[Rfam]
RNA sequence: AGCCCGCUUUCCGAACUGUCACCGUAUGGUGCGCGUGCCCGUGAGGGCUAGGACUGCGGGCAUAUU
Dot-bracket structure: .((((((..(((....(((((((....)))).))).((((....))))..)))..)))))).....